[Rfam]
RNA: Small nucleolar RNA Z247
RNA sequence: GCCUUGCAGGAUGAUGAUGUGAUCGCGUAUCCUCUCGCUUUUCUUGGCCCUGACUAGGAUCCCUUCGUCACCUCAAUGACUACCAAGAGUGAAGCCCUCACGCUUGAUGAUGUGUUUGCACAUCUAAUGACGUUUGAAGC
Numbered sequence: 001g002c003c004u005u006g007c008a009g010g011a012u013g014a015u016g017a018u019g020u021g022a023u024c025g026c027g028u029a030u031c032c033u034c035u036c037g038c039u040u041u042u043c044u045u046g047g048c049c050c051u052g053a054c055u056a057g058g059a060u061c062c063c064u065u066c067g068u069c070a071c072c073u074c075a076a077u078g079a080c081u082a083c084c085a086a087g088a089g090u091g092a093a094g095c096c097c098u099c100a101c102g103c104u105u106g107a108u109g110a111u112g113u114g115u116u117u118g119c120a121c122a123u124c125u126a127a128u129g130a131c132g133u134u135u136g137a138a139g140c
Base pairs, nucleotide, nucleotide: 004139005138007136008135088108090106091105092104